[Rfam]
Source information
This 139-nucleotide RNA from Enterococcus pallens belongs to the Rfam family "PyrR binding site". By type it is a cis-regulatory element. From the family's description: This family represents the PyrR binding site and terminator structure. This RNA structure is found upstream of a variety of genes involved in pyrimidine biosynthesis and transport. The alignment also includes a portion of the antiterminator structure.
RNA sequence: AGAUCCUUUAAGAGUAGUCCCGUGAGGCUAAGAAGGGUGGAGAUAGAAGCUUGAACUAAGUGCGCUUAGGAACAACUCUAUCAUUUUUGACGAAGUCGAUUACGAUCCUCCUACCUGCAUGCGGGUAGGAGUUUUUUUA
Numbered sequence: 001a002g003a004u005c006c007u008u009u010a011a012g013a014g015u016a017g018u019c020c021c022g023u024g025a026g027g028c029u030a031a032g033a034a035g036g037g038u039g040g041a042g043a044u045a046g047a048a049g050c051u052u053g054a055a056c057u058a059a060g061u062g063c064g065c066u067u068a069g070g071a072a073c074a075a076c077u078c079u080a081u082c083a084u085u086u087u088u089g090a091c092g093a094a095g096u097c098g099a100u101u102a103c104g105a106u107c108c109u110c111c112u113a114c115c116u117g118c119a120u121g122c123g124g125g126u127a128g129g130a131g132u133u134u135u136u137u138u139a
Stems, first nucleotide, its partner, number of pairs: 003038007015030005070101002073098001075096003079092001081090002105134001108131010